This 82-nucleotide RNA from Drosophila willistoni belongs to the Rfam family "Small nucleolar RNA Me28S-Gm3255". The literature on the family includes a 2005 paper in RNA by Huang et al., "Genome-wide analyses of two families of snoRNA genes from Drosophila melanogaster, demonstrating the extensive utilization of introns for coding of snoRNAs". The family is grouped with related families in Rfam's "SNORD60 clan". The family's consensus secondary structure was predicted with PFOLD. It is annotated as a C/D-box small nucleolar RNA. Its family is annotated with nucleolus and RNA processing in the Gene Ontology.

RNA sequence: AUUGUUCUGAUGAUAUUUUACAUUUCUGACACCUCAUAUGAAACGCUGUGAUUCAUAUUAUUUGUAAUUAAAAACUGAAAUU
Numbered sequence: 001a002u003u004g005u006u007c008u009g010a011u012g013a014u015a016u017u018u019u020a021c022a023u024u025u026c027u028g029a030c031a032c033c034u035c036a037u038a039u040g041a042a043a044c045g046c047u048g049u050g051a052u053u054c055a056u057a058u059u060a061u062u063u064g065u066a067a068u069u070a071a072a073a074a075c076u077g078a079a080a081u082u
Stems, first nucleotide, its partner, number of pairs: 001082001003080001038049003